Rfam assigns this 88-nucleotide RNA sequence from Thrips palmi to the family "mir-276 microRNA precursor family".
The source organism's lineage runs through Eukaryota, Protostomia, Paraneoptera, Thripoidea and Thrips.
RNA sequence: GCAGGCUCAGCUCAGUAGCGAGGUAUAGAGUUCCUACGUAGCAUGAGAAACAGUAGGAACUUGAUACCGUGCUCCUGGACUGGCCGCG
Numbered sequence: 001g002c003a004g005g006c007u008c009a010g011c012u013c014a015g016u017a018g019c020g021a022g023g024u025a026u027a028g029a030g031u032u033c034c035u036a037c038g039u040a041g042c043a044u045g046a047g048a049a050a051c052a053g054u055a056g057g058a059a060c061u062u063g064a065u066a067c068c069g070u071g072c073u074c075c076u077g078g079a080c081u082g083g084c085c086g087c088g
Base pairs, nucleotide, nucleotide: 012078013077014076017073018072019071020070022068023067024066025065026064028062029061030060031059032058033057034056035055036054037053